[Rfam]
RNA: U4atac minor spliceosomal RNA
Organism: Sinocyclocheilus anshuiensis
RNA sequence: UCUUUCCUUGUCUGGGGGUGGAUUGGGUUGUUCAAUGAACGUGUAGUGAGAACAGCCCUGCUGACACCUAACCAACACAAUCCGCAUCACCUGAACCGCGUGUUCAGAAUAUGGUGCAAUUUUUGGAAGC
Numbered sequence: 001u002c003u004u005u006c007c008u009u010g011u012c013u014g015g016g017g018g019u020g021g022a023u024u025g026g027g028u029u030g031u032u033c034a035a036u037g038a039a040c041g042u043g044u045a046g047u048g049a050g051a052a053c054a055g056c057c058c059u060g061c062u063g064a065c066a067c068c069u070a071a072c073c074a075a076c077a078c079a080a081u082c083c084g085c086a087u088c089a090c091c092u093g094a095a096c097c098g099c100g101u102g103u104u105c106a107g108a109a110u111a112u113g114g115u116g117c118a119a120u121u122u123u124u125g126g127a128a129g130c
Stems, first nucleotide, its partner, number of pairs: 006018004021061001023060001025058001027056007039047002084117006091107006